This 53-nucleotide RNA belongs to the Rfam family "eL15-Euryarchaeota ribosomal protein leader". The base pairs follow the family's consensus structure, which is taken from published work. On this family, see Eckert and Weinberg, BMC Microbiol 2020: "Discovery of 20 novel ribosomal leader candidates in bacteria and archaea". The sequence is in the family's curated seed alignment. The family's RNA type in Rfam is cis-regulatory leader.
[Rfam]
RNA sequence: CGGGAUGCGUCCCGUCAAGGAAUGUGGCCCGUUCCAUCGGGCUGAACCUGAAA
Numbered sequence: 001c002g003g004g005a006u007g008c009g010u011c012c013c014g015u016c017a018a019g020g021a022a023u024g025u026g027g028c029c030c031g032u033u034c035c036a037u038c039g040g041g042c043u044g045a046a047c048c049u050g051a052a053a
Stems, first nucleotide, its partner, number of pairs: 001014005018049003026043005